[Rfam]
RNA: Soft rot Enterobacteriaceae Rev 13 asRNA
Organism: Pectobacterium brasiliense
RNA sequence: AAAUAACUCUUCGGUAAUCAUGAAGUCGUGAAGCCGCGAUUUUAAUGUCUAUUAGGAAAAAUCCCAAUAAACAUAAGCGAACUAAUAAUAAAAAGAGAUUAUUGUCUGGUUUUUUUAUUUAGCGCGAGAGAUUCUACAGAUAGUUUUUAAUAGGAUGAUAUUUAACGUAUUCCUGUUAAUCGUCCGGCUACGCAGUUCAUGCUUUUCACUCGAUAUUCACGUUUAUAAAAACAACAAAGCACGCUUUUUUUGCUCAAAAAUAUCUUGUCGGAAGGAGAUCGUGUGCGGUGACACCGCACACGAUUGACACAAAGCAGGGUUAAAUCGGAGAUGAGAAUCGAGAUCGGAGGA
Numbered sequence: 001a002a003a004u005a006a007c008u009c010u011u012c013g014g015u016a017a018u019c020a021u022g023a024a025g026u027c028g029u030g031a032a033g034c035c036g037c038g039a040u041u042u043u044a045a046u047g048u049c050u051a052u053u054a055g056g057a058a059a060a061a062u063c064c065c066a067a068u069a070a071a072c073a074u075a076a077g078c079g080a081a082c083u084a085a086u087a088a089u090a091a092a093a094a095g096a097g098a099u100u101a102u103u104g105u106c107u108g109g110u111u112u113u114u115u116u117a118u119u120u121a122g123c124g125c126g127a128g129a130g131a132u133u134c135u136a137c138a139g140a141u142a143g144u145u146u147u148u149a150a151u152a153g154g155a156u157g158a159u160a161u162u163u164a165a166c167g168u169a170u171u172c173c174u175g176u177u178a179a180u181c182g183u184c185c186g187g188c189u190a191c192g193c194a195g196u197u198c199a200u201g202c203u204u205u206u207c208a209c210u211c212g213a214u215a216u217u218c219a220c221g222u223u224u225a226u227a228a229a230a231a232c233a234a235c236a237a238a239g240c241a242c243g244c245u246u247u248u249u250u251u252g253c254u255c256a257a258a259a260a261u262a263u264c265u266u267g268u269c270g271g272a273a274g275g276a277g278a279u280c281g282u283g284u285g286c287g288g289u290g291a292c293a294c295c296g297c298a299c300a301c302g303a304u305u306g307a308c309a310c311a312a313a314g315c316a317g318g319g320u321u322a323a324a325u326c327g328g329a330g331a332u333g334a335g336a337a338u339c340g341a342g343a344u345c346g347g348a349g350g351a
Stems, first nucleotide, its partner, number of pairs: 004347001008343004012036004018031005045074004050069004055064003077125003084119005090113004094107003098103001126148005132142001135139001153202001155200004162179006181192003203336004209330003216323002219320002221255001224252002227249005235243001263318003271310001277305010